RNA sequence: AGCUUUUUUCGCGGCAGCGGAGCUCGACCGCAAACUCGGACAGUAAUCGCCUACAUUCGCCAGUACCACCCCCGGUUCGGGGUCGAGCCGAUCUGUGAUGCCCUGCGCGAGCAGGGCAUCACGAUUGCCCUG
Numbered sequence: 001a002g003c004u005u006u007u008u009u010c011g012c013g014g015c016a017g018c019g020g021a022g023c024u025c026g027a028c029c030g031c032a033a034a035c036u037c038g039g040a041c042a043g044u045a046a047u048c049g050c051c052u053a054c055a056u057u058c059g060c061c062a063g064u065a066c067c068a069c070c071c072c073c074g075g076u077u078c079g080g081g082g083u084c085g086a087g088c089c090g091a092u093c094u095g096u097g098a099u100g101c102c103c104u105g106c107g108c109g110a111g112c113a114g115g116g117c118a119u120c121a122c123g124a125u126u127g128c129c130c131u132g
Base pairs, nucleotide, nucleotide: 017031018030019029020028078132079131080130081129082128089127090126092124093123095122096121097120098119099118100117101116102115103114104113105112106111